[Rfam]
RNA sequence: GUCAACCUCACUGGAGAGCGGCACGCGCAUUGGCGUCGUGCCCACCGAAGGGGCAAGCCGCGGCGCCGAUGACGCCCGGUCAAUCUCUCAGGUACCAAGGACAGCGGGGCGUCG
Numbered sequence: 001g002u003c004a005a006c007c008u009c010a011c012u013g014g015a016g017a018g019c020g021g022c023a024c025g026c027g028c029a030u031u032g033g034c035g036u037c038g039u040g041c042c043c044a045c046c047g048a049a050g051g052g053g054c055a056a057g058c059c060g061c062g063g064c065g066c067c068g069a070u071g072a073c074g075c076c077c078g079g080u081c082a083a084u085c086u087c088u089c090a091g092g093u094a095c096c097a098a099g100g101a102c103a104g105c106g107g108g109g110c111g112u113c114g
Base pairs, nucleotide, nucleotide: 006109007108008107009106011104012103013102020042021041022040023039024038025037044093045092046091047089048088051087052086053085057080058079059078060077